[Rfam]
RNA sequence: AGCGGCACGGAUGCCGCUGGUUUUAUCAAAAGCGAUGUUUCGCAAUCCCGCGAAACUCGCAGUCAAAACUAUACAAGGAUGUAUAGUUUUGACGAUGC
Number, nucleotide and partner (000 for none) at each position: 001a018002g017003c016004g015005g014006c013007a000008c000009g000010g000011a000012u000013g006014c005015c004016g003017c002018u001019g000020g000021u000022u000023u000024u000025a000026u000027c000028a000029a000030a000031a000032g000033c059034g058035a057036u000037g056038u055039u054040u053041c052042g051043c050044a000045a000046u000047c000048c000049c000050g043051c042052g041053a040054a039055a038056c037057u035058c034059g033060c000061a000062g093063u092064c091065a090066a089067a088068a087069c086070u085071a084072u083073a082074c081075a000076a000077g000078g000079a000080u000081g074082u073083a072084u071085a070086g069087u068088u067089u066090u065091g064092a063093c062094g000095a000096u000097g000098c000
RNA: TD-2 RNA